[Rfam]
RNA sequence: UUCUGCCAAUGACAAGUUGCAGCUUUAUUGCCUACAUUGUUUGAAAGUCUAAUAAGAAGUGCAAUUUUGAGACAUAA
Numbered sequence: 001u002u003c004u005g006c007c008a009a010u011g012a013c014a015a016g017u018u019g020c021a022g023c024u025u026u027a028u029u030g031c032c033u034a035c036a037u038u039g040u041u042u043g044a045a046a047g048u049c050u051a052a053u054a055a056g057a058a059g060u061g062c063a064a065u066u067u068u069g070a071g072a073c074a075u076a077a
Stems, first nucleotide, its partner, number of pairs: 001077002004074002007071001
A member of the RNA family "Small nucleolar RNA SNORD34" from Zea mays, 77 nucleotides long.
The organism belongs to Zea, within Eukaryota.
Gene Ontology terms of the family: nucleolus and RNA processing.
It scores 48 bits against the family's covariance model.